A member of the RNA family "Small nucleolar RNA snoR14" from Juglans regia, 89 nucleotides long. It is annotated as a C/D-box small nucleolar RNA. The family is grouped with related families in Rfam's "SNORD110 clan". NCBI's taxonomy places the organism under Eukaryota, Euphyllophyta, eudicotyledons, Gunneridae, Juglans. The literature on the family includes a 2001 paper in RNA by Brown et al., "Multiple snoRNA gene clusters from Arabidopsis".
[Rfam]
RNA sequence: GCGAGGUGAUGAUAGAAAUUCAGACCAAGUCUGUCAAUCCGCUGAACUAUAGUGUGACGACUCCAUGAAUCCCGACAGGUUCUGAUCGC
Numbered sequence: 001g002c003g004a005g006g007u008g009a010u011g012a013u014a015g016a017a018a019u020u021c022a023g024a025c026c027a028a029g030u031c032u033g034u035c036a037a038u039c040c041g042c043u044g045a046a047c048u049a050u051a052g053u054g055u056g057a058c059g060a061c062u063c064c065a066u067g068a069a070u071c072c073c074g075a076c077a078g079g080u081u082c083u084g085a086u087c088g089c
Stems, first nucleotide, its partner, number of pairs: 001089004